Rfam assigns this 140-nucleotide RNA sequence from Desulfuromonas soudanensis to the family "c-di-GMP-I-GGC riboswitch aptamer". It scores 60 bits against the family's covariance model. Lineage of the source: Bacteria > Thermodesulfobacteriota > Desulfuromonadia > Desulfuromonadaceae > Desulfuromonas. Its family is annotated with cyclic-di-GMP binding in the Gene Ontology.
[Rfam]
RNA sequence: UCCGACAAGGGCAAACCCGGAGAAAUCCGGAGACGCAAAGCCACGGGCCCUCAUCCUUCAAUACCGCCACUUUCGCCGCGACAGCCCUGGCUGCAGCGGCCGAAUCGGCGAAGGGGGAAAGGGUCGCCGGGCUACCGAAG
Numbered sequence: 001u002c003c004g005a006c007a008a009g010g011g012c013a014a015a016c017c018c019g020g021a022g023a024a025a026u027c028c029g030g031a032g033a034c035g036c037a038a039a040g041c042c043a044c045g046g047g048c049c050c051u052c053a054u055c056c057u058u059c060a061a062u063a064c065c066g067c068c069a070c071u072u073u074c075g076c077c078g079c080g081a082c083a084g085c086c087c088u089g090g091c092u093g094c095a096g097c098g099g100c101c102g103a104a105u106c107g108g109c110g111a112a113g114g115g116g117g118a119a120a121g122g123g124u125c126g127c128c129g130g131g132c133u134a135c136c137g138a139a140g
Stems, first nucleotide, its partner, number of pairs: 001140001003137002011036002017030005034126001039133004044129003047124005